[Rfam]
RNA sequence: AGGUGAUGCCUCCUGAACCUUUAUCACCGGAGGCACUCGGUCAUGCUGUGGGUCAGCCGACCUUAGACGUGAAUCGUCGAUGGGAUGACGUGAGGACGGGUUAGAUGCCCA
Numbered sequence: 001a002g003g004u005g006a007u008g009c010c011u012c013c014u015g016a017a018c019c020u021u022u023a024u025c026a027c028c029g030g031a032g033g034c035a036c037u038c039g040g041u042c043a044u045g046c047u048g049u050g051g052g053u054c055a056g057c058c059g060a061c062c063u064u065a066g067a068c069g070u071g072a073a074u075c076g077u078c079g080a081u082g083g084g085a086u087g088a089c090g091u092g093a094g095g096a097c098g099g100g101u102u103a104g105a106u107g108c109c110c111a
Stems, first nucleotide, its partner, number of pairs: 001020004007035007036094004040089005046083002050063005066078004098110004
Overview: The family of this 111-nucleotide RNA from Cohnella terricola is "epsC RNA". A search with the family's covariance model found it, with a score of 100 bits. It is annotated as a cis-regulatory element. Taxonomically the source falls in Cohnella (Bacteria, Bacillota, Bacilli, Paenibacillaceae).